[Rfam]
RNA sequence: GCUUUUAAAGGAAAAGAGCCCUCCACUGGUCUUAGGCGCCAGCAUCUCUUGGUGCAAGUCCAAGUAAAAGCU
Numbered sequence: 001g002c003u004u005u006u007a008a009a010g011g012a013a014a015a016g017a018g019c020c021c022u023c024c025a026c027u028g029g030u031c032u033u034a035g036g037c038g039c040c041a042g043c044a045u046c047u048c049u050u051g052g053u054g055c056a057a058g059u060c061c062a063a064g065u066a067a068a069a070g071c072u
Stems, first nucleotide, its partner, number of pairs: 001071007010024003026042005048064005
RNA: tRNA